RNA sequence: GGCUGGGCUCGAUGCACGGGACGGCUCACGAAUCGGGUCAGGCCUUGACCGGAGCAGCCCUAAGUGUCGUCGGCCCGGUGCCGUCGGUGUCCUGGCCGUC
Numbered sequence: 001g002g003c004u005g006g007g008c009u010c011g012a013u014g015c016a017c018g019g020g021a022c023g024g025c026u027c028a029c030g031a032a033u034c035g036g037g038u039c040a041g042g043c044c045u046u047g048a049c050c051g052g053a054g055c056a057g058c059c060c061u062a063a064g065u066g067u068c069g070u071c072g073g074c075c076c077g078g079u080g081c082c083g084u085c086g087g088u089g090u091c092c093u094g095g096c097c098g099u100c
Stems, first nucleotide, its partner, number of pairs: 004094004009087006015078001017077004022072001027066003035060004043052002

Rfam assigns this 100-nucleotide RNA from Algisphaera agarilytica to the family "Bacterial small signal recognition particle RNA". Rfam classes the family as a non-coding RNA gene. The match comes from Rfam's covariance-model search (47 bits). NCBI's taxonomy places the organism under Bacteria, Pseudomonadati, Phycisphaerae, Phycisphaeraceae, Algisphaera. About the family: The signal recognition particle (SRP) is a universally conserved ribonucleoprotein involved in the co-translational targeting of proteins to membranes.